[Rfam]
RNA sequence: UCCUCGUUCAAAGGAUCGCAGUCGAAGCACACAAACGGAGCAGACCUCGUGUCUCUCAGCUCUUCAUGGGCUAGUCUAUGCUUUGGGAGAAAGUCCCCGGACGACCUUUACCUUGUAAAGGAACGCGGAAACGCGCCGCCAUAGAAGCACUGCGGCUUCUUUAUUUCUUCUCUUCUACCUAUUCUUGGGCCGGCCUUCGUCGUCGCUUGUACUCGCUUUCUGCGCUUUUGAUUGCCGCUGCUGGGUGAGGGGGAGACCAUAUGGAUGAAGAUAUGAGUCCGAGCUCUCCUGAUCUCAGCUGUGGUAGAGCAUAUGCAACGACUGCGGGGAGGCGGGGAAGUUACCCUCGGUCUGAGUUGGGGGUUCUAGGAGGGGGGAGGCUUUCGUCGAGAGUGAUAGUUAUGCGAUUGCCCUCCUGGGCUGGCCUCACGGUCGGUCUAGGGGUGUAACUCGAUGGGGCUUAUUCUUGAGACGAGG
Dot-bracket structure: .((((((((((..((((((..(((((((.........((((.((...........)).)))).................)))))).)...[[[.[[[[.........................((((....)))).............................................................................................................................................(((........(((...(.((((...........................................(((...)))....))))..........).)))....)))......................)))))).(.(((((((((((((......))))))))))))).).........]]]]]]]....)))).))))))
Rfam assigns this 477-nucleotide RNA sequence from Pseudogymnoascus sp. VKM F-3557 to the family "RNase MRP". Taxonomically the source falls in Pseudogymnoascus (Eukaryota, Fungi, Ascomycota, Leotiomycetes). Gene Ontology terms of the family: rRNA processing, ribonuclease MRP activity and ribonuclease MRP complex. Its Rfam clan is "RNaseP clan". A search with the family's covariance model found it, with a score of 105 bits. From the family's description: RNase MRP is an enzymatically active ribonucleoprotein with two distinct roles in eukaryotes.